A member of the RNA family "terC RNA" from Oharaeibacter diazotrophicus, 55 nucleotides long. The family's consensus secondary structure is taken from published work.
[Rfam]
RNA sequence: CGGGAUGACCGGGCCCCUCUGGCGCGCCGAACGGCGCGCGAUGUCGGCUCCCGCG
Numbered sequence: 001c002g003g004g005a006u007g008a009c010c011g012g013g014c015c016c017c018u019c020u021g022g023c024g025c026g027c028c029g030a031a032c033g034g035c036g037c038g039c040g041a042u043g044u045c046g047g048c049u050c051c052c053g054c055g
Base pairs, nucleotide, nucleotide: 007048009047010046011045012044022039023038024037025036026035027034028033
A search with the family's covariance model found it, with a score of 45 bits.